Shown here is a 370-nucleotide sequence from Rickettsiales bacterium Ac37b, a member of the family "Bacterial RNase P class A". It is annotated as a ribozyme. Pairs were carried over by alignment from the consensus structure, which is taken from published work.
RNA sequence: CCAGAUGAUCGGGUAACCGCUCUGUCUUUUAUAGAAUGAGAGGAAAGUCCGGACUCCACGUAAACAUAGUUCCGGGUAACGCCCGGCAAGGGAAACCUUAGGGAAAGUGCCACAGAAAAUAUACCGCCUAAAUUUAUUUAGGUAAGGGUGAAAAGGUGCGGUAAGAGCGCACCGUGUUUCAGGUAACUGAAAUAGCAGGGAAAACCCAACUAGGAGCAAAACCAAAUAGGAAUAACAUUUAAAACAGUUUACGGUUUUCGUUAUUCGGGUAGGUUGCAAAGAGGUUAAUGGUAACAUUAAUCCAAGAUAAAUGGUUACCACGUAUAUUUUAUAUACCAUACAGAAUCCGGCUUAUAGACUAUCUGUGCUC
Numbered sequence: 001c002c003a004g005a006u007g008a009u010c011g012g013g014u015a016a017c018c019g020c021u022c023u024g025u026c027u028u029u030u031a032u033a034g035a036a037u038g039a040g041a042g043g044a045a046a047g048u049c050c051g052g053a054c055u056c057c058a059c060g061u062a063a064a065c066a067u068a069g070u071u072c073c074g075g076g077u078a079a080c081g082c083c084c085g086g087c088a089a090g091g092g093a094a095a096c097c098u099u100a101g102g103g104a105a106a107g108u109g110c111c112a113c114a115g116a117a118a119a120u121a122u123a124c125c126g127c128c129u130a131a132a133u134u135u136a137u138u139u140a141g142g143u144a145a146g147g148g149u150g151a152a153a154a155g156g157u158g159c160g161g162u163a164a165g166a167g168c169g170c171a172c173c174g175u176g177u178u179u180c181a182g183g184u185a186a187c188u189g190a191a192a193u194a195g196c197a198g199g200g201a202a203a204a205c206c207c208a209a210c211u212a213g214g215a216g217c218a219a220a221a222c223c224a225a226a227u228a229g230g231a232a233u234a235a236c237a238u239u240u241a242a243a244a245c246a247g248u249u250u251a252c253g254g255u256u257u258u259c260g261u262u263a264u265u266c267g268g269g270u271a272g273g274u275u276g277c278a279a280a281g282a283g284g285u286u287a288a289u290g291g292u293a294a295c296a297u298u299a300a301u302c303c304a305a306g307a308u309a310a311a312u313g314g315u316u317a318c319c320a321c322g323u324a325u326a327u328u329u330u331a332u333a334u335a336c337c338a339u340a341c342a343g344a345a346u347c348c349g350g351c352u353u354a355u356a357g358a359c360u361a362u363c364u365g366u367g368c369u370c
Stems, first nucleotide, its partner, number of pairs: 002365006009358002011355001012319007020040003025035003045353003049350005054216004062250004067212005072086005087101001088099004102207002107205002110200002124147002126143007155173006174196001175194008220275004230266006241258005283302008